[Rfam]
Rfam assigns this 77-nucleotide RNA to the family "CyVA-1 RNA".
The base pairs follow the family's consensus structure, which is taken from published work.
It is annotated as a small RNA.
RNA sequence: AUACCGGAAGGAAGUUAUACCGCAGUGUUCCUUUACCGGACAUCCAAGGAGAGCGACGGCAGAUGUACGGACGGUGU
Numbered sequence: 001a002u003a004c005c006g007g008a009a010g011g012a013a014g015u016u017a018u019a020c021c022g023c024a025g026u027g028u029u030c031c032u033u034u035a036c037c038g039g040a041c042a043u044c045c046a047a048g049g050a051g052a053g054c055g056a057c058g059g060c061a062g063a064u065g066u067a068c069g070g071a072c073g074g075u076g077u
Stems, first nucleotide, its partner, number of pairs: 001077006009032004037069002040066005